[Rfam]
RNA: Small nucleolar RNA SNORA41
Organism: Galemys pyrenaicus
Nucleotides: 129
Base pairs, nucleotide, nucleotide: 003063004062005061018049019048020047021046022045027044028043029042071118072117073116074115075114085110086109087107088106089105090104091103092102
Number, partner (000 for none) and nucleotide at each position: 001000u002000u003063c004062c005061a006000c007000a008000g009000c010000u011000a012000c013000u014000g015000g016000u017000g018049u019048g020047c021046a022045a023000c024000u025000a026000a027044c028043u029042g030000u031000u032000c033000u034000a035000a036000g037000g038000g039000u040000a041000g042029c043028a044027g045022u046021u047020g048019u049018g050000g051000c052000a053000u054000u055000u056000c057000u058000c059000u060000a061005u062004g063003g064000c065000a066000a067000a068000g069000a070000a071118a072117c073116a074115a075114u076000a077000u078000u079000a080000a081000a082000c083000a084000c085110c086109u087107c088106u089105u090104u091103c092102u093000u094000a095000g096000c097000a098000a099000a100000a101000c102092a103091g104090a105089a106088a107087g108000u109086g110085g111000c112000c113000u114075a115074u116073u117072g118071u119000g120000a121000c122000a123000a124000a125000u126000a127000a128000g129000a